[Rfam]
Nucleotides: 307
Stems, first nucleotide, its partner, number of pairs: 001307003007301003012262006020060005034048005069291005079238004088102005103119006120234005126228001140219005263279007
Number, partner (000 for none) and nucleotide at each position: 001307u002306c003305c004000g005000g006000g007301g008300g009299a010000a011000g012262c013261u014260c015259a016258c017257u018000g019000c020060c021059g022058a023057g024056g025000c026000c027000a028000c029000g030000c031000a032000c033000g034048g035047g036046g037045u038044g039000c040000g041000c042000g043000u044038c045037a046036c047035c048034c049000g050000c051000g052000c053000u054000c055000g056024c057023c058022u059021c060020g061000g062000g063000g064000a065000a066000g067000g068000u069291c070290u071289g072288a073287g074000g075000g076000a077000a078000g079238g080237g081236c082235c083000c084000g085000g086000g087000c088102g089101g090100c091099c092098c093000c094000a095000g096000c097000a098092g099091g100090g101089c102088c103119c104118c105117g106116c107115c108114c109000g110000u111000g112000a113000c114108g115107g116106g117105c118104g119103g120234g121233u122232g123231a124230g125000c126228c127000a128000c129000c130000a131000g132000c133000a134000a135000g136000g137000g138000g139000g140219g141218g142217c143216g144215c145000g146000g147000c148000g149000c150000g151000g152000g153000c154000c155000g156000g157000c158000c159000c160000g161000g162000g163000c164000a165000g166000g167000a168000g169000a170000a171000g172000c173000c174000a175000g176000c177000g178000g179000u180000u181000c182000c183000c184000c185000c186000g187000g188000a189000g190000c191000c192000c193000g194000g195000c196000g197000g198000a199000u200000g201000u202000u203000c204000g205000u206000g207000g208000c209000c210000c211000c212000g213000c214000g215144g216143c217142g218141c219140u220000u221000u222000g223000a224000g225000a226000c227000a228126g229000a230124c231123u232122c233121a234120c235082g236081g237080c238079c239000g240000g241000c242000g243000c244000g245000c246000u247000g248000a249000g250000u251000c252000c253000a254000a255000u256000g257017g258016g259015u260014g261013a262012g263279g264278u265277g266276g267275g268274g269273c270000a271000g272000c273269g274268c275267c276266c277265c278264a279263u280000a281000a282000c283000c284000c285000a286000a287073u288072u289071c290070a291069g292000a293000c294000u295000a296000c297000u298000c299009u300008c301007c302000c303000u304000g305003g306002g307001a